This 116-nucleotide RNA sequence from Streptococcus pantholopis belongs to the Rfam family "PyrR binding site".
Rfam 15.1 lists 1,498 matches to the family in 930 species.
From the family's description: This family represents the PyrR binding site and terminator structure.
The organism belongs to Streptococcus, within Bacteria.
The base pairs follow the family's consensus structure, which is taken from published work.
It scores 55 bits against the family's covariance model.
Rfam classes the family as a cis-regulatory element.
[Rfam]
Nucleotides: 116
Stems, first nucleotide, its partner, number of pairs: 003038006014031006044074001046072002049069001052066005079110001082107010
Number, partner (000 for none) and nucleotide at each position: 001000a002000u003038a004037g005036c006035c007034u008033u009000u010000a011000a012000u013000c014031u015030a016029u017028g018027u019026c020000c021000g022000g023000a024000g025000a026019g027018a028017c029016a030015u031014g032000c033008a034007a035006g036005g037004u038003u039000c040000a041000g042000u043000c044074u045000u046072c047071a048000u049069a050000c051000a052066g053065a054064a055063g056062a057000a058000c059000a060000g061000a062056u063055u064054u065053u066052c067000c068000c069049u070000u071047u072046g073000c074044a075000c076000u077000u078000u079110g080000c081000u082107a083106a084105c085104c086103u087102u088101g089100c090099c091098c092000u093000u094000u095000u096000c097000u098091g099090g100089g101088u102087a103086a104085g105084g106083u107082u108000u109000u110079c111000u112000u113000u114000a115000u116000u